[Rfam]
A member of the RNA family "SAM-I/IV (S-adenosyl methionine) riboswitch aptamer", 95 nucleotides long.
RNA sequence: UUACGACAUCAAGAACGCAUAUGCGUACCAACCGACUAUCUCGAAGCACGGUGGUUUAGAAUGUGGGUAGCUCUACCAAAAAUUCGAGCAAUCAG
Numbered sequence: 001u002u003a004c005g006a007c008a009u010c011a012a013g014a015a016c017g018c019a020u021a022u023g024c025g026u027a028c029c030a031a032c033c034g035a036c037u038a039u040c041u042c043g044a045a046g047c048a049c050g051g052u053g054g055u056u057u058a059g060a061a062u063g064u065g066g067g068u069a070g071c072u073c074u075a076c077c078a079a080a081a082a083u084u085c086g087a088g089c090a091a092u093c094a095g
Base pairs, nucleotide, nucleotide: 006064007063008062009061015026016025017024018023027055028054029053032051033050034049036046037045039090041088066077067076068075069074

The family's consensus secondary structure is taken from published work.